Rfam assigns this 169-nucleotide RNA sequence from Streptomyces nitrosporeus to the family "c-di-AMP riboswitch aptamer (ydaO/yuaA leader)". The match comes from Rfam's covariance-model search (60 bits). Its family is annotated with cyclic-di-AMP binding and regulation of gene expression in the Gene Ontology. Taxonomically the source falls in Streptomyces (Bacteria, Bacillati, Actinomycetes, Kitasatosporales).
[Rfam]
RNA sequence: ACGCGUCAUGCGCCGUAGGCAGGAGCGGGGGACCCAGGUAGGUGCCGGAGCGGACCGUCGGGAAGACGGUCGGACCGGCUCGGGGUGAAGUCGCUCGCCAGUGCGGGCGACCGGGCAGCUCACAGCCCGAACCCGACAGCUCACCUCGUAGGCGUCGGUGAGGAGAACC
Numbered sequence: 001a002c003g004c005g006u007c008a009u010g011c012g013c014c015g016u017a018g019g020c021a022g023g024a025g026c027g028g029g030g031g032a033c034c035c036a037g038g039u040a041g042g043u044g045c046c047g048g049a050g051c052g053g054a055c056c057g058u059c060g061g062g063a064a065g066a067c068g069g070u071c072g073g074a075c076c077g078g079c080u081c082g083g084g085g086u087g088a089a090g091u092c093g094c095u096c097g098c099c100a101g102u103g104c105g106g107g108c109g110a111c112c113g114g115g116c117a118g119c120u121c122a123c124a125g126c127c128c129g130a131a132c133c134c135g136a137c138a139g140c141u142c143a144c145c146u147c148g149u150a151g152g153c154g155u156c157g158g159u160g161a162g163g164a165g166a167a168c169c
Stems, first nucleotide, its partner, number of pairs: 011154004025149006035082001083134003091110006113128004